[Rfam]
RNA sequence: CCACCACACUCACCCACGCACGGCAGGAGCGGGGGACCCACCAGGUACGACUGCCUGUUCCGGUCUCCGGGACGGCUAGGGGUGAAGUCGCGCUCUCCGCGCGGCCGGGCAGCUCCAGCCCGAACCCGACAGCUCACCUCGCAGGCGCCGGAGAGGAAUU
Numbered sequence: 001c002c003a004c005c006a007c008a009c010u011c012a013c014c015c016a017c018g019c020a021c022g023g024c025a026g027g028a029g030c031g032g033g034g035g036a037c038c039c040a041c042c043a044g045g046u047a048c049g050a051c052u053g054c055c056u057g058u059u060c061c062g063g064u065c066u067c068c069g070g071g072a073c074g075g076c077u078a079g080g081g082g083u084g085a086a087g088u089c090g091c092g093c094u095c096u097c098c099g100c101g102c103g104g105c106c107g108g109g110c111a112g113c114u115c116c117a118g119c120c121c122g123a124a125c126c127c128g129a130c131a132g133c134u135c136a137c138c139u140c141g142c143a144g145g146c147g148c149c150g151g152a153g154a155g156g157a158a159u160u
Stems, first nucleotide, its partner, number of pairs: 011147001013145002019027001029142006039079001080127003088104004107121004